[Rfam]
RNA sequence: CGACACCCUCCCGGCAAAGGCGCAGCCCGCCAGCCGGAAGCAAGCCUUGCAUGGGCGCGGGCAACGACGCUCGUGAAGCGUAGGCAGCGGAGACCAAAGCCCGGGGUUGAGCCCCGAUAUGUGACCCGCUGGAGCCUUCGGUGUGUUGGACCCGGGGGCAGCACCGGCAGGACCGCCAUGGCGAGGUCCUGCUGGUCCGGCCGGGGUCCGAGAGCC
Number, nucleotide and partner (000 for none) at each position: 001c000002g000003a000004c000005a000006c000007c000008c000009u000010c000011c037012c036013g035014g034015c033016a000017a000018a000019g031020g030021c029022g028023c000024a000025g182026c181027c000028c022029g021030c020031c019032a000033g015034c014035c013036g012037g011038a000039a000040g088041c087042a000043a000044g085045c084046c083047u082048u080049g079050c075051a074052u073053g072054g071055g070056c069057g068058c000059g000060g065061g000062c000063a000064a000065c060066g000067a000068c057069g056070c055071u054072c053073g052074u051075g050076a000077a000078g000079c049080g048081u000082a047083g046084g045085c044086a000087g041088c040089g000090g000091a000092g000093a000094c000095c000096a000097a000098a000099g000100c000101c000102c000103g000104g000105g000106g000107u000108u210109g208110a000111g207112c206113c205114c204115c203116g202117a000118u000119a000120u000121g000122u000123g000124a000125c000126c000127c000128g201129c200130u199131g198132g197133a196134g159135c158136c157137u000138u000139c154140g153141g152142u000143g000144u000145g000146u000147u000148g000149g000150a000151c000152c141153c140154g139155g000156g000157g136158g135159c134160a000161g000162c000163a000164c195165c194166g193167g192168c191169a190170g189171g188172a187173c186174c185175g000176c000177c000178a000179u000180g000181g026182c025183g000184a000185g174186g173187u172188c171189c170190u169191g168192c167193u166194g165195g164196u133197c132198c131199g130200g129201c128202c116203g115204g114205g113206g112207u111208c109209c000210g108211a000212g000213a000214g000215c000216c000
A member of the RNA family "Group II catalytic intron D1-D4-6" from Dankookia rubra, 216 nucleotides long. Group II introns are found in rRNA, tRNA and mRNA of organelles in fungi, plants and protists, and also in mRNA in bacteria. A search with the family's covariance model found it, with a score of 132 bits. A reference for the family is Bonen and Vogel (2001), "The ins and outs of group II introns", Trends Genet.